This 122-nucleotide RNA sequence from Aureimonas sp. Leaf324 belongs to the Rfam family "Alphaproteobacterial ar14".
[Rfam]
RNA sequence: CCCUUUCGCGACGGCCCAUCCUCCUCCCAAAGGGCCCGAGCGGAUCCAAGCCUGCGAUCUUCUCCUCCCAUUCGCAGGCUUCAUCCCGACACCCGCCGGUCCUCCCCCGGCGGGUGUCGUCG
Number, nucleotide and partner (000 for none) at each position: 001c000002c000003c000004u000005u000006u000007c042008g041009c040010g000011a000012c000013g036014g035015c034016c033017c032018a000019u000020c000021c000022u000023c000024c000025u000026c000027c000028c000029a000030a000031a000032g017033g016034g015035c014036c013037c000038g000039a000040g009041c008042g007043g000044a000045u000046c000047c000048a000049a080050g079051c078052c077053u076054g075055c074056g073057a072058u000059c000060u000061u000062c000063u000064c000065c000066u000067c000068c000069c000070a000071u000072u057073c056074g055075c054076a053077g052078g051079c050080u049081u000082c000083a000084u000085c000086c000087c000088g000089a117090c116091a115092c114093c113094c112095g111096c110097c109098g108099g107100u000101c000102c000103u000104c000105c000106c000107c099108c098109g097110g096111c095112g094113g093114g092115u091116g090117u089118c000119g000120u000121c000122g000

Rfam describes the family as follows. Smr14C2 was renamed NfeR1 (Nodule Formation Efficiency RNA) highly expressed in salt stress and during the symbiotic interaction on legume roots. The family's RNA type in Rfam is small RNA. Gene Ontology term of the family: biological process involved in symbiotic interaction. The source organism's lineage runs through Bacteria, Pseudomonadati, Pseudomonadota, Alphaproteobacteria and Aureimonas. It scores 68 bits against the family's covariance model.